[Rfam]
RNA sequence: GCUUAAGUACAUCUCAUGUUAAUGUUCAAC
Number, nucleotide and partner (000 for none) at each position: 001g000002c000003u000004u000005a000006a000007g000008u000009a019010c018011a017012u016013c000014u000015c000016a012017u011018g010019u009020u000021a000022a000023u000024g000025u000026u000027c000028a000029a000030c000
The family of this 30-nucleotide sequence from Clostridium botulinum is "CRISPR RNA direct repeat element".
The match comes from Rfam's covariance-model search (41 bits).
Taxonomically the source falls in Clostridium botulinum A (Bacteria, Eubacteriales, Clostridiaceae, Clostridium).